[Rfam]
RNA: Group II catalytic intron D1-D4-3
RNA sequence: UCCACCGCGAGAUGGAAUCUGAAAGAAGCUGUAAGCAAACCCUUGGUCCGACGGACAGGAACCGCAUAAAAGGCUGGGAAAUACGGAUAAGUCUGCAAAAGAAGAUGAAGUCCAAAAGUUGCCGGAAGUACCAGUAAAUGCGGCGGAUAGGUGAGGGGAAAGAUACUGC
Numbered sequence: 001u002c003c004a005c006c007g008c009g010a011g012a013u014g015g016a017a018u019c020u021g022a023a024a025g026a027a028g029c030u031g032u033a034a035g036c037a038a039a040c041c042c043u044u045g046g047u048c049c050g051a052c053g054g055a056c057a058g059g060a061a062c063c064g065c066a067u068a069a070a071a072g073g074c075u076g077g078g079a080a081a082u083a084c085g086g087a088u089a090a091g092u093c094u095g096c097a098a099a100a101g102a103a104g105a106u107g108a109a110g111u112c113c114a115a116a117a118g119u120u121g122c123c124g125g126a127a128g129u130a131c132c133a134g135u136a137a138a139u140g141c142g143g144c145g146g147a148u149a150g151g152u153g154a155g156g157g158g159a160a161a162g163a164u165a166c167u168g169c
Stems, first nucleotide, its partner, number of pairs: 001016004006011001030168002036162001040157006046148005062143006073135003077131001082130003085113004091106004